This 101-nucleotide RNA sequence from [Clostridium] fimetarium belongs to the Rfam family "azaaromatic riboswitch aptamer (yjdF RNA)". The source organism's lineage runs through Bacteria, Bacillota, Clostridia, Lachnospirales and Lachnoclostridium.
[Rfam]
RNA sequence: UAAAACUAAGAUAAAAACACGGUCCGGUAGGUAGUCCGGGCGCAAUAUAAUAUAUUGUCAGUAACCUGCCUCCUUGGUUGUCCAUUCUUUGUUCAUUAAUU
Numbered sequence: 001u002a003a004a005a006c007u008a009a010g011a012u013a014a015a016a017a018c019a020c021g022g023u024c025c026g027g028u029a030g031g032u033a034g035u036c037c038g039g040g041c042g043c044a045a046u047a048u049a050a051u052a053u054a055u056u057g058u059c060a061g062u063a064a065c066c067u068g069c070c071u072c073c074u075u076g077g078u079u080g081u082c083c084a085u086u087c088u089u090u091g092u093u094c095a096u097u098a099a100u101u
Base pairs, nucleotide, nucleotide: 004093005092006091008089009088010087011086022041023040024039025038026037027036042058043057044056045055046054047053068078069077070076

Pairs were carried over by alignment from the consensus structure, which is taken from published work.